RNA sequence: UUGUGUGAGGAAUUUCUCGUCUCGCCUCGUUAAAACAUAAACCAAUACUCUGCGGGACGUCAGUUUCCCUGGUGUUGGCGCAGUAUUCGCGCACCCCGGUUAAUCC
Numbered sequence: 001u002u003g004u005g006u007g008a009g010g011a012a013u014u015u016c017u018c019g020u021c022u023c024g025c026c027u028c029g030u031u032a033a034a035a036c037a038u039a040a041a042c043c044a045a046u047a048c049u050c051u052g053c054g055g056g057a058c059g060u061c062a063g064u065u066u067c068c069c070u071g072g073u074g075u076u077g078g079c080g081c082a083g084u085a086u087u088c089g090c091g092c093a094c095c096c097c098g099g100u101u102a103a104u105c106c
Base pairs, nucleotide, nucleotide: 019058020057021056022055023054024053025052071095072094073093078092079091080090081089
ArcZ RNA: a 106-nucleotide RNA from Mangrovibacter sp. MFB070. The literature on the family includes a 2001 paper in Curr Biol by Argaman et al., "Novel small RNA-encoding genes in the intergenic regions of Escherichia coli". Rfam classes the family as a small RNA. This RNA was discovered in E. coli during a large scale screen. SraH expression is highly abundant in stationary phase, but low levels could be detected in exponentially growing cells as well. ArcZ RNA function as an activator of the alternative sigma factor RpoS as a response of stress. ArcZ afects and is also affected by the ArcA-ArcB regulon (aerobic/anaerobic-sensing ArcA-ArcB two-component). Gene Ontology terms of the family: protein binding and regulation of translation. A search with the family's covariance model found it, with a score of 74 bits.